[Rfam]
RNA sequence: AUUGACUGUGAUGAGCCCAAUACAGACCUGUAAUGAUUUGCGAAAAUGAUCGCAUUUUAUGAACAUCUAAGGGACUGAGUCAUA
Numbered sequence: 001a002u003u004g005a006c007u008g009u010g011a012u013g014a015g016c017c018c019a020a021u022a023c024a025g026a027c028c029u030g031u032a033a034u035g036a037u038u039u040g041c042g043a044a045a046a047u048g049a050u051c052g053c054a055u056u057u058u059a060u061g062a063a064c065a066u067c068u069a070a071g072g073g074a075c076u077g078a079g080u081c082a083u084a
Stems, first nucleotide, its partner, number of pairs: 003082004
A member of the RNA family "Small nucleolar RNA SNORD25" from Helianthus annuus, 84 nucleotides long.
The family's RNA type in Rfam is C/D-box small nucleolar RNA.
The organism belongs to Helianthus, within Eukaryota.
The match comes from Rfam's covariance-model search (71 bits).
Gene Ontology terms of the family: RNA processing and nucleolus.